[Rfam]
RNA: glmS glucosamine-6-phosphate activated ribozyme aptamer
RNA sequence: CAACCAUGGAAAGCGCCAGGACCGCCUCUGCGGUUGACGAGGUGGGGGUUUAUCGAAGUGUUCGGCGGAUGCCCUCCGGUGCAGCACCACCGUUAAAGGUAUCAAAAGACCGGGAGCAAUCCCGGGGACAAAGGGUACCGGGUGCCAUAU
Dot-bracket structure: ...................((((((....))))))........(((((....((((.....))))......)))))(((((......))))).....(((((.......((((((....)))))).........)))))...........